Record summary
The record is a 102-nucleotide sequence from Salimicrobium jeotgali, which matches "Purine riboswitch aptamer" in Rfam.
RNA sequence: AUAGAAUCUGAUUUUCUUUUUCAUAUAAUAGCAGGGAUAUGGCCUGCGAGUUUCUACCGGUCCCCCGUAAAGGGACUGACUAUGAAAAAGCUGUUACGUGCC
Numbered sequence: 001a002u003a004g005a006a007u008c009u010g011a012u013u014u015u016c017u018u019u020u021u022c023a024u025a026u027a028a029u030a031g032c033a034g035g036g037a038u039a040u041g042g043c044c045u046g047c048g049a050g051u052u053u054c055u056a057c058c059g060g061u062c063c064c065c066c067g068u069a070a071a072g073g074g075a076c077u078g079a080c081u082a083u084g085a086a087a088a089a090g091c092u093g094u095u096a097c098g099u100g101c102c
Stems, first nucleotide, its partner, number of pairs: 018088008029049001031047005058078007

Taxonomically the source falls in Salimicrobium (Bacteria, Bacillota, Bacilli, Caryophanales). Its family is annotated with purine nucleobase biosynthetic process in the Gene Ontology. A search with the family's covariance model found it, with a score of 86 bits. The family's consensus secondary structure is taken from published work.